[Rfam]
RNA sequence: UUCCAGCAUCCAGAGCCGGACUUGGGUCCGGCGCCAACCUGCCUACCCGGGCAAGGUGGCGGCCUCUGACGGGGCGAUGCGGCCGGUUCACCGGCAACGAAGCGGGCGGCG
Numbered sequence: 001u002u003c004c005a006g007c008a009u010c011c012a013g014a015g016c017c018g019g020a021c022u023u024g025g026g027u028c029c030g031g032c033g034c035c036a037a038c039c040u041g042c043c044u045a046c047c048c049g050g051g052c053a054a055g056g057u058g059g060c061g062g063c064c065u066c067u068g069a070c071g072g073g074g075c076g077a078u079g080c081g082g083c084c085g086g087u088u089c090a091c092c093g094g095c096a097a098c099g100a101a102g103c104g105g106g107c108g109g110c111g
Stems, first nucleotide, its partner, number of pairs: 006080005015032001017030005033060003038056003041052003046106004082095004